Notes: A member of the RNA family "Lysine riboswitch aptamer" from Planococcus salinus, 185 nucleotides long. The source organism's lineage runs through Bacteria, Bacillati, Bacillota, Caryophanaceae and Planococcus. Gene Ontology term of the family: lysine biosynthetic process. The match comes from Rfam's covariance-model search (100 bits).
RNA sequence: CGGUGAGGUAGAGGCGCGGUAUUUAUUAGUUCCCAGUGGAGUUUGAGGAAACGGUGAAACUGGGAAGAAGGAAAUGUCGCCGAAGUUUGCAUUGGCUCUCACUGAUGCAUGCUGGGCUUGCAGUGAAUAACUGCAGGACUGUCUCGAUGAGCUGAAUGGGUUUAUUGAGUUGCGCUAUCUCCAAA
Numbered sequence: 001c002g003g004u005g006a007g008g009u010a011g012a013g014g015c016g017c018g019g020u021a022u023u024u025a026u027u028a029g030u031u032c033c034c035a036g037u038g039g040a041g042u043u044u045g046a047g048g049a050a051a052c053g054g055u056g057a058a059a060c061u062g063g064g065a066a067g068a069a070g071g072a073a074a075u076g077u078c079g080c081c082g083a084a085g086u087u088u089g090c091a092u093u094g095g096c097u098c099u100c101a102c103u104g105a106u107g108c109a110u111g112c113u114g115g116g117c118u119u120g121c122a123g124u125g126a127a128u129a130a131c132u133g134c135a136g137g138a139c140u141g142u143c144u145c146g147a148u149g150a151g152c153u154g155a156a157u158g159g160g161u162u163u164a165u166u167g168a169g170u171u172g173c174g175c176u177a178u179c180u181c182c183a184a185a
Stems, first nucleotide, its partner, number of pairs: 006180006016080009031065007084113003088109008114140002117137008143169009